[Rfam]
RNA: 6S / SsrS RNA
Organism: Geoanaerobacter pelophilus
RNA sequence: GCAGCUCUGGGAUACUCGUAGCGCAUCCCGUUGGGUCCCUGACUACCUUUCCUUAUCAAAAUGUUCCCGGUUCCGGACGUGGUGAGCAAGCCCUCAUACAGCAGAGGGAAGCCUGAAGCGCCUCACCGGGCGAUGUUGCGACUGAGGUCAGUAACUCAAUACUUCCCGCCACGGUAUCCCGGAGCACCA
Numbered sequence: 001g002c003a004g005c006u007c008u009g010g011g012a013u014a015c016u017c018g019u020a021g022c023g024c025a026u027c028c029c030g031u032u033g034g035g036u037c038c039c040u041g042a043c044u045a046c047c048u049u050u051c052c053u054u055a056u057c058a059a060a061a062u063g064u065u066c067c068c069g070g071u072u073c074c075g076g077a078c079g080u081g082g083u084g085a086g087c088a089a090g091c092c093c094u095c096a097u098a099c100a101g102c103a104g105a106g107g108g109a110a111g112c113c114u115g116a117a118g119c120g121c122c123u124c125a126c127c128g129g130g131c132g133a134u135g136u137u138g139c140g141a142c143u144g145a146g147g148u149c150a151g152u153a154a155c156u157c158a159a160u161a162c163u164u165c166c167c168g169c170c171a172c173g174g175u176a177u178c179c180c181g182g183a184g185c186a187c188c189a
Base pairs, nucleotide, nucleotide: 004185005184006183007182008181009180010179011178012177013176014175015174017173018172019171035155036154038151040150041149042148043146044145066130067129068128069127070126072125075123076122078120079119080118086112087111091108092107093106094105095104